Shown here is a 108-nucleotide RNA sequence, a member of the family "BsrF". It scores 91 bits against the family's covariance model. Pairs were carried over by alignment from the consensus structure, which was predicted with WAR. By type it is a small RNA.
RNA sequence: GCGAUGAGCUGAGUUGUGUAAGUCGAGAAACAUUCCUUUAUGGAACGCACUAUGUGGAGUGUGGUUUUUCGCCUCAAUAUGCGAAGGACGUCUGUGUAAACAGGCGUC
Dot-bracket structure: .............(((.(.....((((((((..((......))..((.(((......))).)))))))))).).))).........(((((((((....)))))))))
Numbered sequence: 001g002c003g004a005u006g007a008g009c010u011g012a013g014u015u016g017u018g019u020a021a022g023u024c025g026a027g028a029a030a031c032a033u034u035c036c037u038u039u040a041u042g043g044a045a046c047g048c049a050c051u052a053u054g055u056g057g058a059g060u061g062u063g064g065u066u067u068u069u070c071g072c073c074u075c076a077a078u079a080u081g082c083g084a085a086g087g088a089c090g091u092c093u094g095u096g097u098a099a100a101c102a103g104g105c106g107u108c
Stems, first nucleotide, its partner, number of pairs: 014077003018073001024071008034043002046063002049060003087108009